[Rfam]
The record is a 94-nucleotide sequence from Microbacterium halimionae, which matches "Glycine riboswitch aptamer" in Rfam. The match comes from Rfam's covariance-model search (44 bits). Lineage of the source: Bacteria > Bacillati > Actinomycetes > Microbacteriaceae > Microbacterium. Rfam describes the family as follows. This family represents the bacterial glycine riboswitch.

RNA sequence: UCACUCUGGAAAGUGGUGCUUCGCGCAUCCGCCGACGGGGCAAGCGUGAUUUCGGUCGCGCGGAAACUCUCAGGCUUAUGACAGAGCGGGAGGA
Numbered sequence: 001u002c003a004c005u006c007u008g009g010a011a012a013g014u015g016g017u018g019c020u021u022c023g024c025g026c027a028u029c030c031g032c033c034g035a036c037g038g039g040g041c042a043a044g045c046g047u048g049a050u051u052u053c054g055g056u057c058g059c060g061c062g063g064a065a066a067c068u069c070u071c072a073g074g075c076u077u078a079u080g081a082c083a084g085a086g087c088g089g090g091a092g093g094a
Base pairs, nucleotide, nucleotide: 001089002088004086005085006084007083008082015029016028017027018026031075032074033073034071035070038069039068040067045062046061047060048059